A member of the RNA family "Bacterial RNase P class A" from Leucobacter sp. wl10, 377 nucleotides long. Taxonomically the source falls in Leucobacter (Bacteria, Bacillati, Micrococcales, Microbacteriaceae).
[Rfam]
RNA sequence: AUGGGCCGGCGGACGGUCGCGUCGCGGCACUUCGGUGCACGCGCCGAGGAACGUCCGGGCUGCACAGAGGAGAACGGUGGGUAACACCCACCCGGGGCAACCCGCGAGCAAGUGCAACAGAGAGUAGACCAGCCUUCCGGCGCAGCCGGGAGGUCCGGGUGAAAGGGUGGUGUAAGAGACCACCGGCGUUCGUGGUGACACGGGCGGCCAGGCAAACCUCGUUCGCAGCAAGGCCGGACAGCAGGCGUUGACGCUCCUCGCCGAGCCUGCGGGUGGGCCGCUAGAGGGUGUCGGCAACGGCACUCCGAGAGAGAUGACCGUCACCGCCGAUCUCCGGAUCGGCGGGACAGAACCCGGCGUACAGCCGGCCCAUUCCG
Numbered sequence: 001a002u003g004g005g006c007c008g009g010c011g012g013a014c015g016g017u018c019g020c021g022u023c024g025c026g027g028c029a030c031u032u033c034g035g036u037g038c039a040c041g042c043g044c045c046g047a048g049g050a051a052c053g054u055c056c057g058g059g060c061u062g063c064a065c066a067g068a069g070g071a072g073a074a075c076g077g078u079g080g081g082u083a084a085c086a087c088c089c090a091c092c093c094g095g096g097g098c099a100a101c102c103c104g105c106g107a108g109c110a111a112g113u114g115c116a117a118c119a120g121a122g123a124g125u126a127g128a129c130c131a132g133c134c135u136u137c138c139g140g141c142g143c144a145g146c147c148g149g150g151a152g153g154u155c156c157g158g159g160u161g162a163a164a165g166g167g168u169g170g171u172g173u174a175a176g177a178g179a180c181c182a183c184c185g186g187c188g189u190u191c192g193u194g195g196u197g198a199c200a201c202g203g204g205c206g207g208c209c210a211g212g213c214a215a216a217c218c219u220c221g222u223u224c225g226c227a228g229c230a231a232g233g234c235c236g237g238a239c240a241g242c243a244g245g246c247g248u249u250g251a252c253g254c255u256c257c258u259c260g261c262c263g264a265g266c267c268u269g270c271g272g273g274u275g276g277g278c279c280g281c282u283a284g285a286g287g288g289u290g291u292c293g294g295c296a297a298c299g300g301c302a303c304u305c306c307g308a309g310a311g312a313g314a315u316g317a318c319c320g321u322c323a324c325c326g327c328c329g330a331u332c333u334c335c336g337g338a339u340c341g342g343c344g345g346g347a348c349a350g351a352a353c354c355c356g357g358c359g360u361a362c363a364g365c366c367g368g369c370c371c372a373u374u375c376c377g
Stems, first nucleotide, its partner, number of pairs: 001373010011362001012322007020046002023043004051360003055357005060228004067258001069256002072224005077091005092106001093104004107219002112217002114213002129158002132154009166184006186208001187206008232279004241270006250262001252260002286305008